[Rfam]
RNA sequence: GGCGAUAAACGCGCGUGCAAUAAGCGGUUCGGACCCGGGGGCGGUACCCGGCGCCUCCACCAAAUUCCCUUCCUUCAGCGGGACGGCUUUGGGGGCGAAACAGGAUCGACGGACGUGUAAAGACGAUGCCUUCGCCCGGAUGAGCUCCGUUAGAAGCUCACUCAACAAUAGUUGCAAAUGACAACUUUGCUGAAGGCGAACUGCUCGCAGCCUAG
Numbered sequence: 001g002g003c004g005a006u007a008a009a010c011g012c013g014c015g016u017g018c019a020a021u022a023a024g025c026g027g028u029u030c031g032g033a034c035c036c037g038g039g040g041g042c043g044g045u046a047c048c049c050g051g052c053g054c055c056u057c058c059a060c061c062a063a064a065u066u067c068c069c070u071u072c073c074u075u076c077a078g079c080g081g082g083a084c085g086g087c088u089u090u091g092g093g094g095g096c097g098a099a100a101c102a103g104g105a106u107c108g109a110c111g112g113a114c115g116u117g118u119a120a121a122g123a124c125g126a127u128g129c130c131u132u133c134g135c136c137c138g139g140a141u142g143a144g145c146u147c148c149g150u151u152a153g154a155a156g157c158u159c160a161c162u163c164a165a166c167a168a169u170a171g172u173u174g175c176a177a178a179u180g181a182c183a184a185c186u187u188u189g190c191u192g193a194a195g196g197c198g199a200a201c202u203g204c205u206c207g208c209a210g211c212c213u214a215g
Stems, first nucleotide, its partner, number of pairs: 001136005014125003025115002029112003035051005052097007137149004
RNA: permuted transfer-messenger RNA